[Rfam]
RNA sequence: GGAGGUGUCGCAUAGUGGCCUAGUGCGCCCGCCUGCUAAGCGGGUUGAGGUUGAAACCUCUCGCGGGUUCAAAUCCCGCCACCUCCG
Numbered sequence: 001g002g003a004g005g006u007g008u009c010g011c012a013u014a015g016u017g018g019c020c021u022a023g024u025g026c027g028c029c030c031g032c033c034u035g036c037u038a039a040g041c042g043g044g045u046u047g048a049g050g051u052u053g054a055a056a057c058c059u060c061u062c063g064c065g066g067g068u069u070c071a072a073a074u075c076c077c078g079c080c081a082c083c084u085c086c087g
Base pairs, nucleotide, nucleotide: 001086002085003084004083005082006081007080010026011025012024013023028044029043030042031041032040063079064078065077066076067075